[Rfam]
RNA sequence: GAGUCUAUCAUGGAUGCGAGUACGUUGGUGUCAAACCAAAGUGCGUAAUGAAAGUAAAUCGUGUGAUCAUUGAAAGAUGCGCAACAUGUGCCGAUCUGGAUUCUCUGAAGAAAGAUUCGAGUAAUAGCAUUUAUGGUGGGACCCGAAAGAUGGUGAACUAUGCCUGAAUAGGACGAAGCCAGGGGAAACUCUGGUGGAGGUUCGAGUGGAUUCUAACGUGCAAAUUGAUCUUUAAAUUUGGGUAUAGGGGCGAAAGACUAAUCGAACCAUCUAGUAGCUGGUUC
Numbered sequence: 001g002a003g004u005c006u007a008u009c010a011u012g013g014a015u016g017c018g019a020g021u022a023c024g025u026u027g028g029u030g031u032c033a034a035a036c037c038a039a040a041g042u043g044c045g046u047a048a049u050g051a052a053a054g055u056a057a058a059u060c061g062u063g064u065g066a067u068c069a070u071u072g073a074a075a076g077a078u079g080c081g082c083a084a085c086a087u088g089u090g091c092c093g094a095u096c097u098g099g100a101u102u103c104u105c106u107g108a109a110g111a112a113a114g115a116u117u118c119g120a121g122u123a124a125u126a127g128c129a130u131u132u133a134u135g136g137u138g139g140g141a142c143c144c145g146a147a148a149g150a151u152g153g154u155g156a157a158c159u160a161u162g163c164c165u166g167a168a169u170a171g172g173a174c175g176a177a178g179c180c181a182g183g184g185g186a187a188a189c190u191c192u193g194g195u196g197g198a199g200g201u202u203c204g205a206g207u208g209g210a211u212u213c214u215a216a217c218g219u220g221c222a223a224a225u226u227g228a229u230c231u232u233u234a235a236a237u238u239u240g241g242g243u244a245u246a247g248g249g250g251c252g253a254a255a256g257a258c259u260a261a262u263c264g265a266a267c268c269a270u271c272u273a274g275u276a277g278c279u280g281g282u283u284c
Base pairs, nucleotide, nucleotide: 005139006138007137008136009135010134011133012132013131014130015129016128017127020044021043022042025039026038027037028036029035048055049054060088061087062086063085064084068079069078090122091121092119093118094117095115096114097113101109102108142281143280145278149271150270151269152268153267154266158247159246160245161244162243163242164241165240166239167238168237169235171203172202173201174200178195179194180193181192182191183190184189208231209230210229212228213227215226216225249259250258
Eukaryotic large subunit ribosomal RNA: a 284-nucleotide part of an RNA from Blastocystis hominis.
A search with the family's covariance model found it, with a score of 3034 bits.
The organism belongs to Blastocystis hominis, within Eukaryota.
On this family, see Cannone et al., BMC Bioinformatics 2002: "The comparative RNA web (CRW) site: an online database of comparative sequence and structure information for ribosomal, intron, and other RNAs".